[Rfam]
Source information
A member of the RNA family "NoRC associated RNA, pRNA" from Rhinoptilus africanus, 77 nucleotides long. The base pairs follow the family's consensus structure, which is taken from published work. The family's RNA type in Rfam is non-coding RNA gene. The literature on the family includes a 2008 paper in EMBO Rep by Mayer et al., "The structure of NoRC-associated RNA is crucial for targeting the chromatin remodelling complex NoRC to the nucleolus".

RNA sequence: AGAUCGGGGUGGCCCUGAGGACAGGGGGUCCUGCAGCUCGCAGGGCUCCCGCAGGGUCACCCUCCUUUCCCCUGGAG
Numbered sequence: 001a002g003a004u005c006g007g008g009g010u011g012g013c014c015c016u017g018a019g020g021a022c023a024g025g026g027g028g029u030c031c032u033g034c035a036g037c038u039c040g041c042a043g044g045g046c047u048c049c050c051g052c053a054g055g056g057u058c059a060c061c062c063u064c065c066u067u068u069c070c071c072c073u074g075g076a077g
Stems, first nucleotide, its partner, number of pairs: 004074001006072001008071002011069002018066004028057007